The family of this 63-nucleotide RNA is "Streptococcus sRNA SpF59 (ldcC RNA)".

RNA sequence: UGACCAUCCUCGAGAGAACGUAAAGAGGAUUAAGGCCAGACGGACAGCCGGGUCAAAAGCCGA
Numbered sequence: 001u002g003a004c005c006a007u008c009c010u011c012g013a014g015a016g017a018a019c020g021u022a023a024a025g026a027g028g029a030u031u032a033a034g035g036c037c038a039g040a041c042g043g044a045c046a047g048c049c050g051g052g053u054c055a056a057a058a059g060c061c062g063a
Base pairs, nucleotide, nucleotide: 001055002054003053004052005051006030007029008028009027010026011025
Pairs were carried over by alignment from the consensus structure, which was predicted with mfold.